[Rfam]
RNA: Manganese Mn2+ riboswitch aptamer (yybP-ykoY)
Organism: Pelistega indica
RNA sequence: CGCUUACUCAUUGGGGAGUAGUCUCUUCUUUAAGAAGGUUUACGUCAACAUACUUGGCAACACUUGCUAUGGCGUAAACGAUUAGUGAUAGCUAAUUU
Number, nucleotide and partner (000 for none) at each position: 001c000002g000003c000004u000005u000006a000007c000008u000009c000010a000011u000012u000013g000014g000015g000016g000017a000018g000019u000020a000021g000022u000023c000024u000025c000026u036027u035028c034029u000030u000031u000032a000033a000034g028035a027036a026037g000038g079039u078040u077041u076042a075043c074044g073045u072046c071047a070048a000049c000050a000051u000052a000053c000054u000055u069056g068057g067058c066059a065060a000061c000062a000063c000064u000065u059066g058067c057068u056069a055070u047071g046072g045073c044074g043075u042076a041077a040078a039079c038080g097081a096082u095083u094084a093085g092086u091087g000088a000089u000090a000091g086092c085093u084094a083095a082096u081097u080098u000